[Rfam]
RNA: tRNA
RNA sequence: GGAGGCGUGGUGUAGUCGGCCUAACACGCAUGCCUGUCACGCAUGAGAUCACGGGUUCGAAUCCCGUCGCCUCCG
Numbered sequence: 001g002g003a004g005g006c007g008u009g010g011u012g013u014a015g016u017c018g019g020c021c022u023a024a025c026a027c028g029c030a031u032g033c034c035u036g037u038c039a040c041g042c043a044u045g046a047g048a049u050c051a052c053g054g055g056u057u058c059g060a061a062u063c064c065c066g067u068c069g070c071c072u073c074c075g
Base pairs, nucleotide, nucleotide: 001074002073003072004071005070006069007068010027011026012025013024029045030044031043032042033041051067052066053065054064055063
Dot-bracket structure: (((((((..((((..........)))).(((((.......))))).....(((((.......)))))))))))).